RNA sequence: UUGCACCAGAUACGAACCUGACAGUCCCCGCCUCAUCGCAGCUGUGGGAUCUCUGUGGCUGCCUGGUUUGAAACGGUGCAAGAGCAACAUCAGCCCUGAGAUUUAAGCUUUUCAGUGGGAAGCGACACUGUUGAGUUAUGGCUCAGAGGCACAGAG
Numbered sequence: 001u002u003g004c005a006c007c008a009g010a011u012a013c014g015a016a017c018c019u020g021a022c023a024g025u026c027c028c029c030g031c032c033u034c035a036u037c038g039c040a041g042c043u044g045u046g047g048g049a050u051c052u053c054u055g056u057g058g059c060u061g062c063c064u065g066g067u068u069u070g071a072a073a074c075g076g077u078g079c080a081a082g083a084g085c086a087a088c089a090u091c092a093g094c095c096c097u098g099a100g101a102u103u104u105a106a107g108c109u110u111u112u113c114a115g116u117g118g119g120a121a122g123c124g125a126c127a128c129u130g131u132u133g134a135g136u137u138a139u140g141g142c143u144c145a146g147a148g149g150c151a152c153a154g155a156g
Stems, first nucleotide, its partner, number of pairs: 003079005015068004020063001022061005027048001029046003034041001093150003113130005131146006
Shown here is a 156-nucleotide sequence from Myripristis murdjan, a member of the family "Small Cajal body specific RNA 1". It scores 64 bits against the family's covariance model. Pairs were carried over by alignment from the consensus structure, which was predicted with RNAalifold. From the family's description: scaRNAs are a specific class of small nuclear RNAs which localise to the Cajal bodies and guide the modification of RNA polymerase II transcribed spliceosomal RNAs U1, U2, U4, U5 and U12. NCBI's taxonomy places the organism under Eukaryota, Eumetazoa, Craniata, Holocentrimorphaceae, Myripristis. By type it is a small Cajal body RNA.